RNA sequence: CAGGAGCAUACCGAAAAUCCUUCAAAAGAGUAGGUA
Numbered sequence: 001c002a003g004g005a006g007c008a009u010a011c012c013g014a015a016a017a018u019c020c021u022u023c024a025a026a027a028g029a030g031u032a033g034g035u036a
Base pairs, nucleotide, nucleotide: 002021003020004019005018010035011034012033